The family of this 170-nucleotide sequence from Gordonia asplenii is "Group II catalytic intron D1-D4-3". Group II introns are found in rRNA, tRNA and mRNA of organelles in fungi, plants and protists, and also in mRNA in bacteria. The organism belongs to Gordonia, within Bacteria.
[Rfam]
RNA sequence: GUCGUCGUGAGGCGGGGUGGGAAGGAAGCUGGAUACGAAAUCCUGCACCGAGGUAUACGAAUCGCAUGUGAGGCAUGCCAGUUGGGGUGAGCCAGCUACACGUGGUGAAGCCCGUUCCAUCGAAGCGGUUGGUGUGUAUAUGCGGCGGUUGUAGGAGGACAGUGAAUGUU
Numbered sequence: 001g002u003c004g005u006c007g008u009g010a011g012g013c014g015g016g017g018u019g020g021g022a023a024g025g026a027a028g029c030u031g032g033a034u035a036c037g038a039a040a041u042c043c044u045g046c047a048c049c050g051a052g053g054u055a056u057a058c059g060a061a062u063c064g065c066a067u068g069u070g071a072g073g074c075a076u077g078c079c080a081g082u083u084g085g086g087g088u089g090a091g092c093c094a095g096c097u098a099c100a101c102g103u104g105g106u107g108a109a110g111c112c113c114g115u116u117c118c119a120u121c122g123a124a125g126c127g128g129u130u131g132g133u134g135u136g137u138a139u140a141u142g143c144g145g146c147g148g149u150u151g152u153a154g155g156a157g158g159a160c161a162g163u164g165a166a167u168g169u170u
Stems, first nucleotide, its partner, number of pairs: 002015005028170001030168002035163002041156005047149004062145006073137003077133007085113004091106004